Annotation: The family of this 81-nucleotide sequence from Caenorhabditis briggsae is "mir-74 microRNA precursor family". Lineage of the source: Eukaryota > Opisthokonta > Protostomia > Nematoda > Caenorhabditis. Clan: mir-73 clan.
RNA sequence: CGCACUUUUGGGCUUCCAUAUCUUUCCCAGCUCCUCUCAUUUACUAUGGAUGCUGGCAAGAAAUGGCAGUCUAGAUGUGCA
Dot-bracket structure: .((((.(..(((((.((((.((((..(((((((..............))..))))).)))).)))).)))))..).)))).
Rfam's curators put it in the seed alignment. Rfam links the family to the GO terms miRNA-mediated post-transcriptional gene silencing and RISC complex.